RNA: mir-17 microRNA precursor family
RNA sequence: GCUUUUUGUUCUAAGGUGCAUCUAGUGCAGAUAGUGAAGUAGACUAGCAUCUACUGCCCUAAGUGCUCCUUCUGGCAUAAGAA
Numbered sequence: 001g002c003u004u005u006u007u008g009u010u011c012u013a014a015g016g017u018g019c020a021u022c023u024a025g026u027g028c029a030g031a032u033a034g035u036g037a038a039g040u041a042g043a044c045u046a047g048c049a050u051c052u053a054c055u056g057c058c059c060u061a062a063g064u065g066c067u068c069c070u071u072c073u074g075g076c077a078u079a080a081g082a083a
Base pairs, nucleotide, nucleotide: 005080006079010075011074014070015069016068018066019065020064021063023061024060025059027057028056030055032053033052034051